RNA sequence: UGCAGAGUAGAUUUUGCGCGUCAAGUGUAUCAGGAUGGGAUGUCGCCUGAUAACGAAAAGGCCCUUGCCUUGCGGUGCAAAGUCGCGUCCGCUGCU
Number, nucleotide and partner (000 for none) at each position: 001u000002g095003c094004a093005g092006a000007g000008u000009a000010g084011a083012u082013u081014u080015u079016g078017c077018g076019c074020g073021u072022c000023a000024a000025g054026u053027g000028u052029a051030u050031c049032a048033g047034g046035a000036u000037g000038g090039g089040a088041u087042g086043u000044c000045g000046c034047c033048u032049g031050a030051u029052a028053a026054c025055g000056a000057a000058a071059a070060g069061g068062c000063c000064c000065u000066u000067g000068c061069c060070u059071u058072g021073c020074g019075g000076u018077g017078c016079a015080a014081a013082g012083u011084c010085g000086c042087g041088u040089c039090c038091g000092c005093u004094g003095c002096u000
RNA: THF (Tetrahydrofolate) riboswitch aptamer